MIR5565 microRNA precursor family: a 109-nucleotide RNA sequence from Miscanthus lutarioriparius. It scores 97 bits against the family's covariance model. The family's consensus secondary structure was predicted with RNAalifold. The source organism's lineage runs through Eukaryota, Viridiplantae, Euphyllophyta, Liliopsida and Miscanthus.

[Rfam]
RNA sequence: GUUGUCAGAUUCACCUCAAUCCGCAUCUGUUGGGGUGGAUUGGGAUGAAAUUUAGUUCAAGUUCCACUCCAAUCCACCCCAAUACAUGUGGAUUGAUACGAAUCCGACU
Number, nucleotide and partner (000 for none) at each position: 001g000002u000003u000004g108005u107006c106007a000008g104009a103010u102011u101012c100013a000014c000015c000016u096017c095018a094019a093020u092021c091022c090023g089024c088025a087026u086027c000028u084029g083030u082031u081032g080033g000034g000035g077036u076037g075038g074039a073040u072041u071042g070043g069044g000045a000046u066047g065048a000049a000050a000051u000052u000053u000054a000055g000056u000057u000058c000059a000060a000061g000062u000063u000064c000065c047066a046067c000068u000069c043070c042071a041072a040073u039074c038075c037076a036077c035078c000079c000080c032081a031082a030083u029084a028085c000086a026087u025088g024089u023090g022091g021092a020093u019094u018095g017096a016097u000098a000099c000100g012101a011102a010103u009104c008105c000106g006107a005108c004109u000